The family of this 184-nucleotide sequence from Metabacillus sediminilitoris is "Lysine riboswitch aptamer". Lineage of the source: Bacteria > Bacillota > Caryophanales > Bacillaceae > Metabacillus.
RNA sequence: CAGUGAGGUAGAGGCGCGGUAUUUAACAGUCUGUAGUGGAGUUUAGAGAAAACGAUGAUGCUAUGGAGAAGGAAAUGUCGCCGAAGCGGGUAAUAUUCUCAGUAUUACUAGCUGGGUCUGUAGUUAAGAGCUGCAGGACUGUCUCAAUAAACAUCCCGGUUUAUUGAGUUGUGCUAUCUCAUUU
Numbered sequence: 001c002a003g004u005g006a007g008g009u010a011g012a013g014g015c016g017c018g019g020u021a022u023u024u025a026a027c028a029g030u031c032u033g034u035a036g037u038g039g040a041g042u043u044u045a046g047a048g049a050a051a052a053c054g055a056u057g058a059u060g061c062u063a064u065g066g067a068g069a070a071g072g073a074a075a076u077g078u079c080g081c082c083g084a085a086g087c088g089g090g091u092a093a094u095a096u097u098c099u100c101a102g103u104a105u106u107a108c109u110a111g112c113u114g115g116g117u118c119u120g121u122a123g124u125u126a127a128g129a130g131c132u133g134c135a136g137g138a139c140u141g142u143c144u145c146a147a148u149a150a151a152c153a154u155c156c157c158g159g160u161u162u163a164u165u166g167a168g169u170u171g172u173g174c175u176a177u178c179u180c181a182u183u184u
Stems, first nucleotide, its partner, number of pairs: 006179006016081009031066008085113003089109008114140002117137008143168009